[Rfam]
RNA sequence: GUUGCUUUUUUGAAAGGCGAAUGCCCAUUCUAAAAGUUGGUCAGCCAUAUCGGGAAGCAUAUAUAAAGAAUGUAUUGUCGGUUUUAAACAACAUAAUGUUCUUCUAUUGCAUUGUGUUACCUGUCACCUGGUAAAUUU
Numbered sequence: 001g002u003u004g005c006u007u008u009u010u011u012g013a014a015a016g017g018c019g020a021a022u023g024c025c026c027a028u029u030c031u032a033a034a035a036g037u038u039g040g041u042c043a044g045c046c047a048u049a050u051c052g053g054g055a056a057g058c059a060u061a062u063a064u065a066a067a068g069a070a071u072g073u074a075u076u077g078u079c080g081g082u083u084u085u086a087a088a089c090a091a092c093a094u095a096a097u098g099u100u101c102u103u104c105u106a107u108u109g110c111a112u113u114g115u116g117u118u119a120c121c122u123g124u125c126a127c128c129u130g131g132u133a134a135a136u137u138u
Stems, first nucleotide, its partner, number of pairs: 003059006016046003077132005083126001090118003094114005

small nucleolar RNA snoR137: a 138-nucleotide sequence from Camellia sinensis. NCBI's taxonomy places the organism under Eukaryota, Magnoliopsida, eudicotyledons, Ericales, Camellia. The family has 4 seed sequences and 808 matches in Rfam 15.1. Rfam links the family to the GO terms RNA processing and nucleolus. The literature on the family includes a 2009 paper in Nucleic Acids Res by Chen and Wu, "Mining small RNA sequencing data: a new approach to identify small nucleolar RNAs in Arabidopsis".